[Rfam]
RNA: Small nucleolar RNA ACA64
Organism: Anisodus acutangulus
RNA sequence: GAGCCUAGGCCUAGGCCUAGGCCUAGGCCUAGGCCUAGGCCUGAGCCUAGGCCUAGAGCCUAGGCCUAGGCCUAGGCCUGAGCCUAGGCCUAGAGCCUAGGCCUAAACCU
Numbered sequence: 001g002a003g004c005c006u007a008g009g010c011c012u013a014g015g016c017c018u019a020g021g022c023c024u025a026g027g028c029c030u031a032g033g034c035c036u037a038g039g040c041c042u043g044a045g046c047c048u049a050g051g052c053c054u055a056g057a058g059c060c061u062a063g064g065c066c067u068a069g070g071c072c073u074a075g076g077c078c079u080g081a082g083c084c085u086a087g088g089c090c091u092a093g094a095g096c097c098u099a100g101g102c103c104u105a106a107a108c109c110u
Stems, first nucleotide, its partner, number of pairs: 005050006013042004020035004063103005072093008